Plastid-rpl16 group II-D1 intron: a 47-nucleotide sequence from Capsicum baccatum. Plastid-rpl16 is a non-coding RNA (ncRNA) recognised in plastids. It was recognised in and intronic region of a ribosome rpl16 gene. A search with the family's covariance model found it, with a score of 58 bits. A reference for the family is Richter et al. (2023), "Retrograde signaling in plants: A critical review focusing on the GUN pathway and beyond", Plant Commun.
RNA sequence: CAGAGCUUCGAGACAAUAAGGACUAAGAAGAUUGACUCAAGAACCAA
Numbered sequence: 001c002a003g004a005g006c007u008u009c010g011a012g013a014c015a016a017u018a019a020g021g022a023c024u025a026a027g028a029a030g031a032u033u034g035a036c037u038c039a040a041g042a043a044c045c046a047a
Stems, first nucleotide, its partner, number of pairs: 007041002010038003014034004